[Rfam]
RNA sequence: AGAUGAGUGAGACACCCCGCUCCCGGGACACCGGGGGCGAUUCCAGUACCGGGCUUCCCCAGCGCCGCACUGGGCAUGCGUUCGCGCACACUCCUCACCGAUCGGA
Numbered sequence: 001a002g003a004u005g006a007g008u009g010a011g012a013c014a015c016c017c018c019g020c021u022c023c024c025g026g027g028a029c030a031c032c033g034g035g036g037g038c039g040a041u042u043c044c045a046g047u048a049c050c051g052g053g054c055u056u057c058c059c060c061a062g063c064g065c066c067g068c069a070c071u072g073g074g075c076a077u078g079c080g081u082u083c084g085c086g087c088a089c090a091c092u093c094c095u096c097a098c099c100g101a102u103c104g105g106a
Base pairs, nucleotide, nucleotide: 004097005096006095007094009093010092018039019038020037021036022035023034024033025032026031042074043073044072045071046070047069049067051065053063054062077088078087079086098105099104
Rfam assigns this 106-nucleotide RNA from Streptomyces xanthophaeus to the family "Streptomyces RNA 5676". It is annotated as a small RNA. For this family Rfam cites "Deep sequencing-based identification of small non-coding RNAs in Streptomyces coelicolor" (Vockenhuber et al., RNA Biol, 2011). The source organism's lineage runs through Bacteria, Actinomycetota, Actinomycetes, Kitasatosporales and Streptomyces.